[Rfam]
RNA sequence: ACAACUACCAGUUCGUGCGCCGCAACCGCGUGGUGAUGCUGUCGGUACUGGGCAUUUCCUGGUUCUGGUAUUACGGCGCCACCUUCCUGACGCAGAUUCCCGCCUAUACCAAGGAAGUGCUG
Number, nucleotide and partner (000 for none) at each position: 001a000002c000003a000004a000005c000006u000007a000008c000009c000010a049011g048012u047013u000014c045015g000016u000017g042018c041019g040020c000021c038022g037023c000024a000025a034026c033027c000028g000029c000030g000031u000032g000033g026034u025035g000036a000037u022038g021039c000040u019041g018042u017043c000044g000045g014046u000047a012048c011049u010050g000051g121052g120053c119054a118055u117056u000057u115058c114059c113060u112061g000062g110063u000064u000065c000066u000067g099068g098069u000070a000071u095072u094073a000074c092075g091076g000077c089078g088079c000080c000081a000082c000083c000084u000085u000086c000087c000088u078089g077090a000091c075092g074093c000094a072095g071096a000097u000098u068099c067100c000101c000102g000103c000104c000105u000106a000107u000108a000109c000110c062111a000112a060113g059114g058115a057116a000117g055118u054119g053120c052121u051122g000
A member of the RNA family "Burkholderia RNA 11" from Fluviicoccus keumensis, 122 nucleotides long. A search with the family's covariance model found it, with a score of 59 bits. Pairs were carried over by alignment from the consensus structure, which was predicted with RNAfold. The literature on the family includes a 2013 paper in Genomics by Ramos et al., "Experimental identification of small non-coding regulatory RNAs in the opportunistic human pathogen Burkholderia cenocepacia J2315". Rfam describes the family as follows. Co-purified with Hfq, expression confirmed by Northern blot. Predicted target marZ. Overlaps coding sequence. Its family is annotated with protein binding in the Gene Ontology.